[Rfam]
RNA sequence: GUGAAACACGGUGGCGCGUGCCUGUACUCCCAGCUAGUCAGGAGGCUGAGCCUGCCGGAUUGCUUGAGCCCAGGAGUUCUGGGCUGCAGCGCGCUAUGCCGAGCAGGUGUCCGCGCUAAACCCGGCACUAAUAUGGUCAGUCCCCGGGAGCCGGGGGACACCAGGUUGACUAUGGAGGGGUGAACCAGCCCAGGUCAGAGACGGAGCACGUCAAAGCUCCUGUGCCGGUCAGUAGUGCAGCCUGUGAAUAGCCACUGCAGCGUAACCUGGGCAACAGAGAGAGACAUGGGUUCCU
Numbered sequence: 001g002u003g004a005a006a007c008a009c010g011g012u013g014g015c016g017c018g019u020g021c022c023u024g025u026a027c028u029c030c031c032a033g034c035u036a037g038u039c040a041g042g043a044g045g046c047u048g049a050g051c052c053u054g055c056c057g058g059a060u061u062g063c064u065u066g067a068g069c070c071c072a073g074g075a076g077u078u079c080u081g082g083g084c085u086g087c088a089g090c091g092c093g094c095u096a097u098g099c100c101g102a103g104c105a106g107g108u109g110u111c112c113g114c115g116c117u118a119a120a121c122c123c124g125g126c127a128c129u130a131a132u133a134u135g136g137u138c139a140g141u142c143c144c145c146g147g148g149a150g151c152c153g154g155g156g157g158a159c160a161c162c163a164g165g166u167u168g169a170c171u172a173u174g175g176a177g178g179g180g181u182g183a184a185c186c187a188g189c190c191c192a193g194g195u196c197a198g199a200g201a202c203g204g205a206g207c208a209c210g211u212c213a214a215a216g217c218u219c220c221u222g223u224g225c226c227g228g229u230c231a232g233u234a235g236u237g238c239a240g241c242c243u244g245u246g247a248a249u250a251g252c253c254a255c256u257g258c259a260g261c262g263u264a265a266c267c268u269g270g271g272c273a274a275c276a277g278a279g280a281g282a283g284a285c286a287u288g289g290g291u292u293c294c295u
Stems, first nucleotide, its partner, number of pairs: 001046002004023001007020004028043003048293007060282002063279003068272007080264002083261007091253001093252005099246001103245006114237005122228007129168004134163004141156004146151001170174001176221006188211002195204002
This 295-nucleotide sequence from Pandion haliaetus belongs to the Rfam family "Metazoan signal recognition particle RNA". Pairs were carried over by alignment from the consensus structure, which is taken from published work. The signal recognition particle (SRP) is a universally conserved ribonucleoprotein. It is involved in the co-translational targeting of proteins to membranes. The eukaryotic SRP consists of a 300-nucleotide 7S RNA and six proteins: SRPs 72, 68, 54, 19, 14, and 9. Archaeal SRP consists of a 7S RNA and homologues of the eukaryotic SRP19 and SRP54 proteins. Eukaryotic and archaeal 7S RNAs have very similar secondary structures, as represented by this family. Eight helical elements fold into the Alu and S domains, separated by a long linker region. The Alu domain is thought to mediate the peptide chain elongation retardation function of the SRP. The universally conserved helix which interacts with the SRP54 M domain mediates signal sequence recognition. In eukaryotes and archaea, the SRP19-helix 6 complex is thought to be involved in SRP assembly and stabilises helix 8 for SRP54 binding. The Signal Recognition Particle Database (SRPDB) provides compilations of SRP components, with phylogenetic data and structural illustrations. Many sequences below the threshold for this family are clearly closely related, but are most likely to be SRP RNA derived pseudogenes. The human genome in particular is known to contain a large amount of SRP RNA related sequence, including Alu repeats. While the threshold of this family is set high so as to minimise the number of hits to such regions, it is likely that some remain.